[Rfam]
RNA sequence: AACACCCCGGGUCUGUGGUUGUAAAUCGAAGCCAGUUGCAGGCAAAACGAUCCACGUAAGCAGUAAAAUUUACUGUGAGCACGGUGCAGCUUAGGAGUAAGACCUGCCGUAAAUUACGAGAGAAGCAGUAGUGGGGAGCAGACGCUUAGGAGCGAACCUUCCAGCAGGCGAGUGUGGGGGCGAAGACCAGGUCAGCCGAGUGUU
Numbered sequence: 001a002a003c004a005c006c007c008c009g010g011g012u013c014u015g016u017g018g019u020u021g022u023a024a025a026u027c028g029a030a031g032c033c034a035g036u037u038g039c040a041g042g043c044a045a046a047a048c049g050a051u052c053c054a055c056g057u058a059a060g061c062a063g064u065a066a067a068a069u070u071u072a073c074u075g076u077g078a079g080c081a082c083g084g085u086g087c088a089g090c091u092u093a094g095g096a097g098u099a100a101g102a103c104c105u106g107c108c109g110u111a112a113a114u115u116a117c118g119a120g121a122g123a124a125g126c127a128g129u130a131g132u133g134g135g136g137a138g139c140a141g142a143c144g145c146u147u148a149g150g151a152g153c154g155a156a157c158c159u160u161c162c163a164g165c166a167g168g169c170g171a172g173u174g175u176g177g178g179g180g181c182g183a184a185g186a187c188c189a190g191g192u193c194a195g196c197c198g199a200g201u202g203u204u
Stems, first nucleotide, its partner, number of pairs: 001204005008198003013195003016189005029175001031173001032042001034091007051084002059076001082182001103168005108118003122161004131153002137146003
A member of the RNA family "raiA RNA", 204 nucleotides long. The family's RNA type in Rfam is riboswitch.